This 72-nucleotide RNA from Cyprinodon variegatus belongs to the Rfam family "mir-129 microRNA precursor family". The literature on the family includes a 2002 paper in Curr Biol by Lagos-Quintana et al., "Identification of tissue-specific microRNAs from mouse". Taxonomically the source falls in Cyprinodon (Eukaryota, Actinopteri, Teleostei, Euteleosteomorpha).
RNA sequence: ACGAAUCUUUUUGCGGUCUGGGCUUGCUGUGCAUACAUGAACCCGGGAAGCCCUUACCCCAAAAAGCAUUCG
Numbered sequence: 001a002c003g004a005a006u007c008u009u010u011u012u013g014c015g016g017u018c019u020g021g022g023c024u025u026g027c028u029g030u031g032c033a034u035a036c037a038u039g040a041a042c043c044c045g046g047g048a049a050g051c052c053c054u055u056a057c058c059c060c061a062a063a064a065a066g067c068a069u070u071c072g
Stems, first nucleotide, its partner, number of pairs: 007066007015058003020053004025048001027046002